[Rfam]
RNA sequence: UUUUGGCUUAGUUAGGAGGCAAAUAUCAAAUCUGAUCAAUCAAAAUACUUUAUUAGUGUUUUCGUUUUUGAGAAGAAACUUUGAUUUUUCUUCUUCAAAUUAAGUUUCUUCUCGAAAAUCUUCAGACAUAA
Numbered sequence: 001u002u003u004u005g006g007c008u009u010a011g012u013u014a015g016g017a018g019g020c021a022a023a024u025a026u027c028a029a030a031u032c033u034g035a036u037c038a039a040u041c042a043a044a045a046u047a048c049u050u051u052a053u054u055a056g057u058g059u060u061u062u063c064g065u066u067u068u069u070g071a072g073a074a075g076a077a078a079c080u081u082u083g084a085u086u087u088u089u090c091u092u093c094u095u096c097a098a099a100u101u102a103a104g105u106u107u108c109u110u111c112u113c114g115a116a117a118a119u120c121u122u123c124a125g126a127c128a129u130a131a
Base pairs, nucleotide, nucleotide: 004021005020007018008017009016036064038062045059046058047057048056049055067116068115069114070113072111073110074109075108076107077106078105079104080103
RNA: Small nucleolar RNA U19
Organism: Arabis nemorensis